A member of the RNA family "Vault RNA" from Cnephaeus nilssonii, 96 nucleotides long.
NCBI's taxonomy places the organism under Eukaryota, Deuterostomia, Dipnotetrapodomorpha, Yangochiroptera, Cnephaeus.
The match comes from Rfam's covariance-model search (53 bits).
The family's RNA type in Rfam is non-coding RNA gene.
RNA sequence: GGGCUGGCUUGAGCUCAGCAGUUCCUUUGAGUCACUUGCCAACCACUCCUGCUUGCGAGGUUAGUUUGAGACCUGAGGGUGCCUGCCAGCCCUUUA
Number, nucleotide and partner (000 for none) at each position: 001g000002g091003g090004c089005u088006g087007g086008c000009u000010u000011g000012a000013g080014c079015u078016c077017a000018g000019c075020a074021g073022u000023u000024c000025c000026u070027u069028u068029g067030a066031g000032u000033c000034a000035c000036u000037u000038g000039c000040c000041a000042a000043c000044c000045a000046c000047u000048c000049c000050u000051g000052c000053u000054u000055g000056c000057g000058a000059g000060g000061u000062u000063a000064g000065u000066u030067u029068g028069a027070g026071a000072c000073c021074u020075g019076a000077g016078g015079g014080u013081g000082c000083c000084u000085g000086c007087c006088a005089g004090c003091c002092c000093u000094u000095u000096a000